[Rfam]
RNA sequence: UCCCCUUCGGUCCAGUGGUUCUUGACAGUUCAACAGGACUGAACCAGAUUUGUGAAAUGUUUAGGACCACUGAAUCCAAG
Dot-bracket structure: .............((((((.((.((((.((((....................)))).)))).)).)))))).........
Rfam assigns this 80-nucleotide sequence from Etheostoma spectabile to the family "mir-203 microRNA precursor family". It scores 74 bits against the family's covariance model. Rfam links the family to the GO terms RISC complex and miRNA-mediated post-transcriptional gene silencing. Taxonomically the source falls in Oligocephalus (Eukaryota, Chordata, Euteleostomi, Ctenosquamata). The base pairs follow the family's consensus structure, which was predicted with RNAalifold. Rfam 15.1 lists 1,049 matches to the family in 464 species.